[Rfam]
RNA sequence: GCACAUAUGAUGAAGCAGAUCAACUUGAAUUAAGUAUGAUAUUUUACUUAAAAGUAAACGCUUUCUGAUGUG
Numbered sequence: 001g002c003a004c005a006u007a008u009g010a011u012g013a014a015g016c017a018g019a020u021c022a023a024c025u026u027g028a029a030u031u032a033a034g035u036a037u038g039a040u041a042u043u044u045u046a047c048u049u050a051a052a053a054g055u056a057a058a059c060g061c062u063u064u065c066u067g068a069u070g071u072g
Base pairs, nucleotide, nucleotide: 002072003071004070005069012064013063014062015061016060021054025053026052
This 72-nucleotide RNA from Galemys pyrenaicus belongs to the Rfam family "Small nucleolar RNA Z39". Taxonomically the source falls in Galemys (Eukaryota, Eumetazoa, Chordata, Sarcopterygii). A search with the family's covariance model found it, with a score of 50 bits. By type it is a C/D-box small nucleolar RNA. The base pairs follow the family's consensus structure, which was predicted with PFOLD.